This 96-nucleotide RNA from Aedes aegypti belongs to the Rfam family "mir-286 microRNA precursor family". The literature on the family includes a 2009 paper in BMC Genomics by Li et al., "Direct sequencing and expression analysis of a large number of miRNAs in Aedes aegypti and a multispecies survey of novel mosquito miRNAs". The sequence is in the family's curated seed alignment. The source organism's lineage runs through Eukaryota, Ecdysozoa, Panarthropoda, Pterygota and Stegomyia.
RNA sequence: AUCGUUAUUUGGGGCGAUUGUCGGACUAGUCGCUGCGUACAAAACGGAACUAUUUCAACUAGUGACUAGACCGAACACUCGCGUCCUAAAGCACGA
Numbered sequence: 001a002u003c004g005u006u007a008u009u010u011g012g013g014g015c016g017a018u019u020g021u022c023g024g025a026c027u028a029g030u031c032g033c034u035g036c037g038u039a040c041a042a043a044a045c046g047g048a049a050c051u052a053u054u055u056c057a058a059c060u061a062g063u064g065a066c067u068a069g070a071c072c073g074a075a076c077a078c079u080c081g082c083g084u085c086c087u088a089a090a091g092c093a094c095g096a
Stems, first nucleotide, its partner, number of pairs: 011087006019077003022073003027068005033062002